[Rfam]
RNA: mir-9242 microRNA precursor family
Organism: Myotis brandtii
RNA sequence: GGCCUCCCUCUGUGGGGUGAUUGAUUGGGAUACCCUGCAAUCGAUCGCCCCACAGAGGGAGGCC
Numbered sequence: 001g002g003c004c005u006c007c008c009u010c011u012g013u014g015g016g017g018u019g020a021u022u023g024a025u026u027g028g029g030a031u032a033c034c035c036u037g038c039a040a041u042c043g044a045u046c047g048c049c050c051c052a053c054a055g056a057g058g059g060a061g062g063c064c
Stems, first nucleotide, its partner, number of pairs: 001064027028035002